Ribosomal protein L10 leader: a 123-nucleotide RNA sequence from Pseudanabaenococcus habilitatus.
Rfam classes the family as a cis-regulatory leader.
The base pairs follow the family's consensus structure, which was predicted with CMfinder.
From the family's description: This family is a putative r-protein leader autoregulatory structure found in B. subtilis and other low-GC Gram-positive bacteria. It is located in the 5' untranslated regions of mRNAs encoding ribosomal proteins L10 and L12 (rplJ-rplL).
Nucleotides: 123
Base pairs, nucleotide, nucleotide: 028052029051030050031049032048033047034040035039084108085107086106087105088104089103091101092100093099
Number, partner (000 for none) and nucleotide at each position: 001000u002000a003000c004000a005000a006000c007000u008000u009000g010000a011000u012000a013000u014000u015000g016000u017000a018000g019000c020000c021000g022000u023000a024000g025000a026000u027000a028052g029051c030050a031049g032048g033047g034040g035039c036000a037000u038000u039035g040034c041000u042000u043000a044000a045000u046000u047033u048032c049031c050030u051029g052028c053000u054000g055000a056000g057000g058000u059000g060000a061000a062000g063000u064000u065000a066000a067000u068000a069000g070000g071000g072000u073000a074000a075000a076000u077000c078000u079000c080000u081000a082000u083000u084108g085107c086106c087105u088104c089103g090000c091101c092100u093099u094000g095000c096000u097000a098000u099093a100092g101091g102000u103089u104088g105087g106086g107085g108084c109000u110000u111000u112000u113000a114000u115000u116000u117000u118000u119000g120000c121000a122000a123000a
NCBI's taxonomy places the organism under Bacteria, Cyanophyceae, Pseudanabaenaceae, Pseudanabaenococcus, Pseudanabaenococcus habilitatus.